Rfam assigns this 348-nucleotide RNA from Betaproteobacteria bacterium UKL13-2 to the family "Bacterial RNase P class A". Lineage of the source: Bacteria > Pseudomonadati > Pseudomonadota > Betaproteobacteria. The match comes from Rfam's covariance-model search (226 bits). The family's RNA type in Rfam is ribozyme.
RNA sequence: GAAGCUCACCAGACAGUCGCUGUGUACUUGUUACAUAGAGGAAGGUCCGGACUCCACAGGGCAGGGUAGUGGGUAACGCCCAUCCACCGCGAGGUGAGGAUUAGAGCAACAGAGACGAGUCGUUCGCAGUGUUUCGCGAGCGGGUGAAACGGGCAAUCUCUACUCGGAGCAAACCCAAAUAGGCAGGCGCGAAGCAUGCAGUGCGGUGCUUUGCCGGUGGUCCGCCGGAUGCCUGCGGGUAGGGUGCUAGAGGCGUACGGUAACGUGCGUUCGAGAUGAAUGACUGUCAUACCGCAGGGCGCAAGUUCUGCGGCGUAACAGAAUCCGGCCUAUCGGUGAGCUUCCACU
Numbered sequence: 001g002a003a004g005c006u007c008a009c010c011a012g013a014c015a016g017u018c019g020c021u022g023u024g025u026a027c028u029u030g031u032u033a034c035a036u037a038g039a040g041g042a043a044g045g046u047c048c049g050g051a052c053u054c055c056a057c058a059g060g061g062c063a064g065g066g067u068a069g070u071g072g073g074u075a076a077c078g079c080c081c082a083u084c085c086a087c088c089g090c091g092a093g094g095u096g097a098g099g100a101u102u103a104g105a106g107c108a109a110c111a112g113a114g115a116c117g118a119g120u121c122g123u124u125c126g127c128a129g130u131g132u133u134u135c136g137c138g139a140g141c142g143g144g145u146g147a148a149a150c151g152g153g154c155a156a157u158c159u160c161u162a163c164u165c166g167g168a169g170c171a172a173a174c175c176c177a178a179a180u181a182g183g184c185a186g187g188c189g190c191g192a193a194g195c196a197u198g199c200a201g202u203g204c205g206g207u208g209c210u211u212u213g214c215c216g217g218u219g220g221u222c223c224g225c226c227g228g229a230u231g232c233c234u235g236c237g238g239g240u241a242g243g244g245u246g247c248u249a250g251a252g253g254c255g256u257a258c259g260g261u262a263a264c265g266u267g268c269g270u271u272c273g274a275g276a277u278g279a280a281u282g283a284c285u286g287u288c289a290u291a292c293c294g295c296a297g298g299g300c301g302c303a304a305g306u307u308c309u310g311c312g313g314c315g316u317a318a319c320a321g322a323a324u325c326c327g328g329c330c331u332a333u334c335g336g337u338g339a340g341c342u343u344c345c346a347c348u
Stems, first nucleotide, its partner, number of pairs: 001344010011333001012288007020038007043331003047328005052169004059223004064165005069083005084098001085096004099160002104158002106154002121143001123140005129134001173245004183236006214228005252271008